[Rfam]
RNA sequence: AAGUAAAUAUAAACUUUUUCUCAUAUAUACUCAAGAAUAUGGCUUGAGCGUCUCUACCAGGAAACCGUAAAUUUCCCGGCUAUGAGAAAGAAACUGUUCGUU
Numbered sequence: 001a002a003g004u005a006a007a008u009a010u011a012a013a014c015u016u017u018u019u020c021u022c023a024u025a026u027a028u029a030c031u032c033a034a035g036a037a038u039a040u041g042g043c044u045u046g047a048g049c050g051u052c053u054c055u056a057c058c059a060g061g062a063a064a065c066c067g068u069a070a071a072u073u074u075c076c077c078g079g080c081u082a083u084g085a086g087a088a089a090g091a092a093a094c095u096g097u098u099c100g101u102u
Base pairs, nucleotide, nucleotide: 018088019087020086021085022084023083024082025081030048031047032046033045034044035043058078060076061075062074063073064072

The record is a 102-nucleotide RNA from Thermoactinomyces mirandus, which matches "Purine riboswitch aptamer" in Rfam. The source organism's lineage runs through Bacteria, Bacillati, Bacillota, Bacilli and Thermoactinomyces. It scores 88 bits against the family's covariance model. The family's consensus secondary structure is taken from published work.